Source information: A member of the RNA family "Small nucleolar RNA SNORA15" from Coregonus sp. 'balchen', 133 nucleotides long. The match comes from Rfam's covariance-model search (69 bits). The base pairs follow the family's consensus structure, which was predicted with RNAfold. Rfam's curators write: ACA15 is a member of the H/ACA class of snoRNA that guide the sites of modification of uridines to pseudouridines. Gene Ontology terms of the family: RNA processing and nucleolus.
[Rfam]
RNA sequence: GCAUGGACGAAUUCUGUGUUACUCUGUCAGUAGUAAAUGCAGUCAGACACCAUGCAAAAGUAUCCUUUCACGCCUUCCUUAAGAAGGGUGAGUGCUGUCCUGUGCCUUACCCAGUGGAGGAGUGAAUACAUUG
Numbered sequence: 001g002c003a004u005g006g007a008c009g010a011a012u013u014c015u016g017u018g019u020u021a022c023u024c025u026g027u028c029a030g031u032a033g034u035a036a037a038u039g040c041a042g043u044c045a046g047a048c049a050c051c052a053u054g055c056a057a058a059a060g061u062a063u064c065c066u067u068u069c070a071c072g073c074c075u076u077c078c079u080u081a082a083g084a085a086g087g088g089u090g091a092g093u094g095c096u097g098u099c100c101u102g103u104g105c106c107u108u109a110c111c112c113a114g115u116g117g118a119g120g121a122g123u124g125a126a127u128a129c130a131u132u133g
Base pairs, nucleotide, nucleotide: 001055002054003053004052005051006050014042015041016040017039018038019037067126068125069124071122073120074119075118076117077116083115086112087111088110089109090108091107092106